[Rfam]
RNA sequence: AAUAGGCCUACGCUUAGUUUUCGGCUAUAGGCCGAAAAGCGGGGGAACCAGUCAAUUGGGGCGAAUCAUUCCGUUCGAAUGUAGGGUACCAUCUUACCCGAGUCCGUCAGCUAACCUCGUCAGCAGUAGAUGGGUCUA
Numbered sequence: 001a002a003u004a005g006g007c008c009u010a011c012g013c014u015u016a017g018u019u020u021u022c023g024g025c026u027a028u029a030g031g032c033c034g035a036a037a038a039g040c041g042g043g044g045g046a047a048c049c050a051g052u053c054a055a056u057u058g059g060g061g062c063g064a065a066u067c068a069u070u071c072c073g074u075u076c077g078a079a080u081g082u083a084g085g086g087u088a089c090c091a092u093c094u095u096a097c098c099c100g101a102g103u104c105c106g107u108c109a110g111c112u113a114a115c116c117u118c119g120u121c122a123g124c125a126g127u128a129g130a131u132g133g134g135u136c137u138a
Base pairs, nucleotide, nucleotide: 012124013123014122018038019037020036021035022034023033024032025031026030039120040119041118042117043116044115049058050057059105060104061103067081068080069079070078084099085098086097087096

The record is a 138-nucleotide RNA sequence from Paenibacillus phyllosphaerae, which matches "c-di-AMP riboswitch aptamer (ydaO/yuaA leader)" in Rfam.
This family represents a conserved RNA structure found upstream of the ydaO and yuaA genes in Bacillus subtilis and related genes in other bacteria.
The match comes from Rfam's covariance-model search (83 bits).